[Rfam]
RNA: tRNA
Organism: Stegodyphus mimosarum
RNA sequence: GCCUUCGUGGUACAGCGGUCAGCACGCUCGACGCGUAUUCGAGAGGUCCGUGGUUCGAGUCCCGGCGAGGGCA
Numbered sequence: 001g002c003c004u005u006c007g008u009g010g011u012a013c014a015g016c017g018g019u020c021a022g023c024a025c026g027c028u029c030g031a032c033g034c035g036u037a038u039u040c041g042a043g044a045g046g047u048c049c050g051u052g053g054u055u056c057g058a059g060u061c062c063c064g065g066c067g068a069g070g071g072c073a
Base pairs, nucleotide, nucleotide: 001072002071003070004069005068006067007066010025011024013022027043028042029041030040031039048065049064050063052062053061
Dot-bracket structure: (((((((..((.(........).)).(((((.......)))))....(((.((.......)))))))))))).